[Rfam]
RNA sequence: AGUCAAGUGUUUUCAGCGUCUUUUCGGCGAACGAAUUUCUUUUGCCUUCUUUGAAGGUGAAGAAUGAUG
Numbered sequence: 001a002g003u004c005a006a007g008u009g010u011u012u013u014c015a016g017c018g019u020c021u022u023u024u025c026g027g028c029g030a031a032c033g034a035a036u037u038u039c040u041u042u043u044g045c046c047u048u049c050u051u052u053g054a055a056g057g058u059g060a061a062g063a064a065u066g067a068u069g
Stems, first nucleotide, its partner, number of pairs: 009065005017059004022055003026050002029047001032044004
The family of this 69-nucleotide RNA sequence from Rhizobium album is "S-element". NCBI's taxonomy places the organism under Bacteria, Pseudomonadati, Pseudomonadota, Hyphomicrobiales, Rhizobium. This family represents a group of S-elements from p42d and related plasmids. The S-element has multiple functions and is believed to act as a negative regulator of repC transcription, be required for efficient replication and act as a translational enhancer of repC. The base pairs follow the family's consensus structure, which is taken from published work. For this family Rfam cites "Two discrete elements are required for the replication of a repABC plasmid: an antisense RNA and a stem-loop structure" (Venkova-Canova et al., Mol Microbiol, 2004).